[Rfam]
Small nucleolar RNA SNORD91 family: a 94-nucleotide sequence from Oryctolagus cuniculus. The pairing is the family consensus, mapped onto this sequence.
RNA sequence: CUUAGGAGCCAAUGAUGUUUUUAUGCAAAAUGUCUGAACCUGUCUGACGCAUCUCAGUGAUGCAUCUCUAUGUGGUGCUGAGGCUUCUCUGCCA
Numbered sequence: 001c002u003u004a005g006g007a008g009c010c011a012a013u014g015a016u017g018u019u020u021u022u023a024u025g026c027a028a029a030a031u032g033u034c035u036g037a038a039c040c041u042g043u044c045u046g047a048c049g050c051a052u053c054u055c056a057g058u059g060a061u062g063c064a065u066c067u068c069u070a071u072g073u074g075g076u077g078c079u080g081a082g083g084c085u086u087c088u089c090u091g092c093c094a
Stems, first nucleotide, its partner, number of pairs: 004088007